[Rfam]
RNA sequence: GUUGAGGGGAAUGUUGGCUGGCUCGAGGCUUCCAUGAAACCCUAACUUAUCUUAUCUUAUCUUAUCUCUCUCAUCUCCAUCCUCUUCAUCUUCAUCUUCCAUCUUCAUCUUUGUGUUGAUGAAGAUGGAUGAACAAGUGAUGAGAGAGAAAGAGAUGAUAAAGAAAGUUACAAAGAUCAGAGAGGCUUCGGACCAGGCUUCAUUCCCCUCAAA
Numbered sequence: 001g002u003u004g005a006g007g008g009g010a011a012u013g014u015u016g017g018c019u020g021g022c023u024c025g026a027g028g029c030u031u032c033c034a035u036g037a038a039a040c041c042c043u044a045a046c047u048u049a050u051c052u053u054a055u056c057u058u059a060u061c062u063u064a065u066c067u068c069u070c071u072c073a074u075c076u077c078c079a080u081c082c083u084c085u086u087c088a089u090c091u092u093c094a095u096c097u098u099c100c101a102u103c104u105u106c107a108u109c110u111u112u113g114u115g116u117u118g119a120u121g122a123a124g125a126u127g128g129a130u131g132a133a134c135a136a137g138u139g140a141u142g143a144g145a146g147a148g149a150a151a152g153a154g155a156u157g158a159u160a161a162a163g164a165a166a167g168u169u170a171c172a173a174a175g176a177u178c179a180g181a182g183a184g185g186c187u188u189c190g191g192a193c194c195a196g197g198c199u200u201c202a203u204u205c206c207c208c209u210c211a212a213a
Base pairs, nucleotide, nucleotide: 002212003211004210005209006208007207008206009205010204011203012202013201016198018196019195020194021193024190025189026188027187028186029185030184031183032182
Background:
The record is a 213-nucleotide RNA from Carnegiea gigantea, which matches "mir-166 microRNA precursor family" in Rfam. It scores 76 bits against the family's covariance model. Its family is annotated with RISC complex and miRNA-mediated post-transcriptional gene silencing in the Gene Ontology. About the family: This family represents the plant microRNA (miRNA) precursor mir-166.